[Rfam]
RNA sequence: GCAACGGCUAGUCCGACGGGACGAAAACCGGCAUCACCACCGGCCCGCCGUUGUGAUUCUUUCUUGGUG
Numbered sequence: 001g002c003a004a005c006g007g008c009u010a011g012u013c014c015g016a017c018g019g020g021a022c023g024a025a026a027a028c029c030g031g032c033a034u035c036a037c038c039a040c041c042g043g044c045c046c047g048c049c050g051u052u053g054u055g056a057u058u059c060u061u062u063c064u065u066g067g068u069g
Stems, first nucleotide, its partner, number of pairs: 001054008011022004028043004034069001037066001039064001